[Rfam]
RNA sequence: UCCUGCCUCGCGAAAAGUCGCCUACUGUGGCGGCCUGCCCCCAUCCAAAUGUGAUGGAUCGGGAUAGCGAGGCAGGUUGGG
Number, nucleotide and partner (000 for none) at each position: 001u000002c076003c075004u074005g073006c072007c071008u070009c069010g068011c067012g000013a000014a000015a000016a000017g034018u033019c032020g031021c030022c029023u000024a000025c000026u000027g000028u000029g022030g021031c020032g019033g018034c017035c000036u000037g000038c063039c062040c061041c000042c000043a000044u000045c000046c000047a000048a000049a000050u000051g000052u000053g000054a000055u000056g000057g000058a000059u000060c000061g040062g039063g038064a000065u000066a000067g011068c010069g009070a008071g007072g006073c005074a004075g003076g002077u000078u000079g000080g000081g000
DUF3800-IX RNA: an 81-nucleotide sequence. Rfam describes the family as follows. Actinobacteria, Firmicutes (1 example), Nitrospirae, Proteobacteria, Verrucomicrobia (1 example). The family's RNA type in Rfam is small RNA.